[Rfam]
RNA sequence: AACGUGCUCCGGGGUCGGUGAGAGUCCGAACCGGCGGUCAUAGUCCGCGAGCGGGCGGCGUGCGAACGCCUCCUGCUGAACCGGUGGAAUUCCGGUACCGACGGUAAUGCGUGCAGGCUCAGGCCCGUGCGCUCAGUCCGGAUGGGAGGCAGCACGAA
Number, nucleotide and partner (000 for none) at each position: 001a000002a000003c156004g155005u154006g153007c152008u151009c149010c148011g000012g000013g000014g000015u000016c028017g027018g026019u000020g000021a000022g000023a000024g000025u000026c018027c017028g016029a000030a000031c000032c100033g099034g048035c047036g046037g045038u000039c000040a000041u000042a000043g098044u097045c037046c036047g035048c034049g000050a000051g076052c075053g074054g073055g072056c000057g000058g000059c000060g000061u000062g000063c000064g000065a000066a000067c000068g000069c000070c000071u000072c055073c054074u053075g052076c051077u000078g000079a000080a096081c095082c094083g093084g092085u000086g000087g000088a000089a000090u000091u000092c084093c083094g082095g081096u080097a044098c043099c033100g032101a000102c140103g139104g138105u000106a000107a000108u000109g000110c000111g000112u000113g000114c000115a000116g000117g000118c000119u000120c000121a000122g000123g000124c000125c000126c000127g000128u000129g000130c000131g000132c000133u000134c000135a000136g000137u000138c104139c103140g102141g000142a000143u000144g000145g000146g000147a000148g010149g009150c000151a008152g007153c006154a005155c004156g003157a000158a000
The family of this 158-nucleotide RNA sequence from Leifsonia aquatica is "FMN riboswitch aptamer (RFN element)". A search with the family's covariance model found it, with a score of 78 bits.